[Rfam]
RNA sequence: UUGCACCUUAUAUCUAAGGUCAUGCCUCGUUCUGGUGGCAUGGCCAUUUUUCGAGGAUGCGUUAAGGAAUUGCUGUUAAGUCAGUAAGCGGCCAGACAACCGUUGGGAUAGAUCCACAGGUGUGAUGCGGUUUCUCUCUCCGCUCUCAGCUACUAAAUCUAUCCCACAAUU
Numbered sequence: 001u002u003g004c005a006c007c008u009u010a011u012a013u014c015u016a017a018g019g020u021c022a023u024g025c026c027u028c029g030u031u032c033u034g035g036u037g038g039c040a041u042g043g044c045c046a047u048u049u050u051u052c053g054a055g056g057a058u059g060c061g062u063u064a065a066g067g068a069a070u071u072g073c074u075g076u077u078a079a080g081u082c083a084g085u086a087a088g089c090g091g092c093c094a095g096a097c098a099a100c101c102g103u104u105g106g107g108a109u110a111g112a113u114c115c116a117c118a119g120g121u122g123u124g125a126u127g128c129g130g131u132u133u134c135u136c137u138c139u140c141c142g143c144u145c146u147c148a149g150c151u152a153c154u155a156a157a158u159c160u161a162u163c164c165c166a167c168a169a170u171u
Stems, first nucleotide, its partner, number of pairs: 002061004009053001016048002018045009105165008122145001124143001127140001

The family of this 171-nucleotide RNA sequence from Brassica rapa is "small nucleolar RNA snoR143". Rfam classes the family as an H/ACA-box small nucleolar RNA. A search with the family's covariance model found it, with a score of 99 bits. Rfam links the family to the GO terms nucleolus and RNA processing. The family has 3 seed sequences and 660 matches in Rfam 15.1. Taxonomically the source falls in Brassica (Eukaryota, Embryophyta, Spermatophyta, malvids).